[Rfam]
RNA sequence: ACCAAUGAUGUUACAAUCCAACUUGUUAGAGGCUGUAGUUGAUCCAAGACCCUGUUUUCAGGGAGAACCUCCUUGGUGUUACUACAUUUCCAAUGACAGCAACGAUUGAUCUGAGGU
Numbered sequence: 001a002c003c004a005a006u007g008a009u010g011u012u013a014c015a016a017u018c019c020a021a022c023u024u025g026u027u028a029g030a031g032g033c034u035g036u037a038g039u040u041g042a043u044c045c046a047a048g049a050c051c052c053u054g055u056u057u058u059c060a061g062g063g064a065g066a067a068c069c070u071c072c073u074u075g076g077u078g079u080u081a082c083u084a085c086a087u088u089u090c091c092a093a094u095g096a097c098a099g100c101a102a103c104g105a106u107u108g109a110u111c112u113g114a115g116g117u
Stems, first nucleotide, its partner, number of pairs: 001117003050063005
A member of the RNA family "Small nucleolar RNA Z278" from Glycine max, 117 nucleotides long. It scores 65 bits against the family's covariance model. Rfam 15.1 lists 1,130 matches to the family in 214 species. snoZ278 is a C/D box small nucleolar RNA. Its methylation guide targets have not been reported. The literature on the family includes a 2003 paper in Nucleic Acids Res by Chen et al., "The high diversity of snoRNAs in plants: identification and comparative study of 120 snoRNA genes from Oryza sativa". The organism belongs to Glycine subgen. Soja, within Eukaryota.